[Rfam]
Rfam assigns this 114-nucleotide RNA sequence from Kosakonia cowanii to the family "iscR stability element". The literature on the family includes a 2009 paper in EMBO J by Desnoyers et al., "Small RNA-induced differential degradation of the polycistronic mRNA iscRSUA". By type it is a cis-regulatory element. The source organism's lineage runs through Bacteria, Pseudomonadota, Gammaproteobacteria, Kosakonia and Kosakonia cowanii.

RNA sequence: UAAACUGAAUUCAGAAUCGGGCCAGGGCAUCGUCUGAUGCCCUGUUAACACGGUCGUACAUCCAGCCGGUUGCCUGAUUCCUUGCAUUAGAGCGAUGUACGGAGUUUAAAGAGC
Numbered sequence: 001u002a003a004a005c006u007g008a009a010u011u012c013a014g015a016a017u018c019g020g021g022c023c024a025g026g027g028c029a030u031c032g033u034c035u036g037a038u039g040c041c042c043u044g045u046u047a048a049c050a051c052g053g054u055c056g057u058a059c060a061u062c063c064a065g066c067c068g069g070u071u072g073c074c075u076g077a078u079u080c081c082u083u084g085c086a087u088u089a090g091a092g093c094g095a096u097g098u099a100c101g102g103a104g105u106u107u108a109a110a111g112a113g114c
Stems, first nucleotide, its partner, number of pairs: 008106005014080009023044006048070002051068003083099001085097003